A member of the RNA family "transfer-messenger RNA" from a Dysgonamonadaceae bacterium, 399 nucleotides long. The organism belongs to Dysgonomonadaceae, within Bacteria. From the family's description: Bacterial tmRNA, also known as 10Sa RNA or SsrA, is named for its dual tRNA and mRNA-like properties. Its role is to liberate the mRNA from a stalled ribosome. To accomplish this part of the tmRNA is used as a reading frame that ends in a translation stop signal. Rfam classes the family as a non-coding RNA gene. The family's consensus secondary structure is taken from published work.
RNA sequence: GGGGUUGACUGGUUUUGACAGCGAGUAGAAGAGGUUUGUAAGCAUGCAGUGCGUUGACAGUUAGCACUUUAAUCUCAAAUGUCGAACAAUUAACUGGCAAUAACAAUUAUGCUCUUGCUGCUUAAUCGAAGUACAGUAGAUUAAAGCUUAAUCCCGGCACAGGUGUCGGGACAAGACAUCACCCGGAAGCUGUGGCUUCGAAGCGUUCCGAAUCGGUGGUGCAGAUAAAUCGGAGAUAGGAUAGGUGAGGCUUUGGCGCCUAUCUGAAAUCAAAAAAGCUAAGGAAAAAGUUGGUAGCUUCUGCCUUACUUUUUCUCGAAAAAUCAAGAGAAGAUAAGCAUGUAGAAAGCAAAUUGCUUCCUCGUUUGGACGAGGGUUCGAGUCCCUCCAACUCCACUU
Numbered sequence: 001g002g003g004g005u006u007g008a009c010u011g012g013u014u015u016u017g018a019c020a021g022c023g024a025g026u027a028g029a030a031g032a033g034g035u036u037u038g039u040a041a042g043c044a045u046g047c048a049g050u051g052c053g054u055u056g057a058c059a060g061u062u063a064g065c066a067c068u069u070u071a072a073u074c075u076c077a078a079a080u081g082u083c084g085a086a087c088a089a090u091u092a093a094c095u096g097g098c099a100a101u102a103a104c105a106a107u108u109a110u111g112c113u114c115u116u117g118c119u120g121c122u123u124a125a126u127c128g129a130a131g132u133a134c135a136g137u138a139g140a141u142u143a144a145a146g147c148u149u150a151a152u153c154c155c156g157g158c159a160c161a162g163g164u165g166u167c168g169g170g171a172c173a174a175g176a177c178a179u180c181a182c183c184c185g186g187a188a189g190c191u192g193u194g195g196c197u198u199c200g201a202a203g204c205g206u207u208c209c210g211a212a213u214c215g216g217u218g219g220u221g222c223a224g225a226u227a228a229a230u231c232g233g234a235g236a237u238a239g240g241a242u243a244g245g246u247g248a249g250g251c252u253u254u255g256g257c258g259c260c261u262a263u264c265u266g267a268a269a270u271c272a273a274a275a276a277a278g279c280u281a282a283g284g285a286a287a288a289a290g291u292u293g294g295u296a297g298c299u300u301c302u303g304c305c306u307u308a309c310u311u312u313u314u315c316u317c318g319a320a321a322a323a324u325c326a327a328g329a330g331a332a333g334a335u336a337a338g339c340a341u342g343u344a345g346a347a348a349g350c351a352a353a354u355u356g357c358u359u360c361c362u363c364g365u366u367u368g369g370a371c372g373a374g375g376g377u378u379c380g381a382g383u384c385c386c387u388c389c390a391a392c393u394c395c396a397c398u399u
Stems, first nucleotide, its partner, number of pairs: 001395007019368002021365005027359001030358002033355007043342005048068005055084005061078001113138001117137004177221006184210004189204003196235005240264006249280006283316009293305003299333002301330002372388005